[Rfam]
RNA: Small nucleolar RNA SNORA41
Organism: Galemys pyrenaicus
RNA sequence: UUCCACAGCUACUGGUCUGCAACUGUCCUUACUGGAGCAGUUGCAGUAUUCCUCUGUGGGAAAGAGAUUGUUACAAGAUUUAAACACCUCUUUCUUAGUAAAACAGGAAGUGGGCAUAUCUGUGACAAACAAGA
Numbered sequence: 001u002u003c004c005a006c007a008g009c010u011a012c013u014g015g016u017c018u019g020c021a022a023c024u025g026u027c028c029u030u031a032c033u034g035g036a037g038c039a040g041u042u043g044c045a046g047u048a049u050u051c052c053u054c055u056g057u058g059g060g061a062a063a064g065a066g067a068u069u070g071u072u073a074c075a076a077g078a079u080u081u082a083a084a085c086a087c088c089u090c091u092u093u094c095u096u097a098g099u100a101a102a103a104c105a106g107g108a109a110g111u112g113g114g115c116a117u118a119u120c121u122g123u124g125a126c127a128a129a130c131a132a133g134a
Stems, first nucleotide, its partner, number of pairs: 003059004017046009073123003077119001087114003090110006